RNA sequence: GAGGGCCGGCCCCUCGGUGUCGCCGAUCAGGCGGUGAUACCAAACCACCCAGAGCUGCACUCGUUAAGAGCGGGUGUGGUGAGCGUCUGUGGAAAAGGCGGGAUGAAUCCCGUCAGGU
Numbered sequence: 001g002a003g004g005g006c007c008g009g010c011c012c013c014u015c016g017g018u019g020u021c022g023c024c025g026a027u028c029a030g031g032c033g034g035u036g037a038u039a040c041c042a043a044a045c046c047a048c049c050c051a052g053a054g055c056u057g058c059a060c061u062c063g064u065u066a067a068g069a070g071c072g073g074g075u076g077u078g079g080u081g082a083g084c085g086u087c088u089g090u091g092g093a094a095a096a097g098g099c100g101g102g103a104u105g106a107a108u109c110c111c112g113u114c115a116g117g118u
Stems, first nucleotide, its partner, number of pairs: 001015005016041006023034003046117001048092002050089004054080002057077003061073004097114006
Description: Shown here is a 118-nucleotide RNA from Paraburkholderia sp. BL23I1N1, a member of the family "Group II catalytic intron D1-D4-2". NCBI's taxonomy places the organism under Bacteria, Pseudomonadati, Burkholderiales, Burkholderiaceae, Paraburkholderia. The pairing is the family consensus, mapped onto this sequence. About the family: Group II introns are found in rRNA, tRNA and mRNA of organelles in fungi, plants and protists, and also in mRNA in bacteria.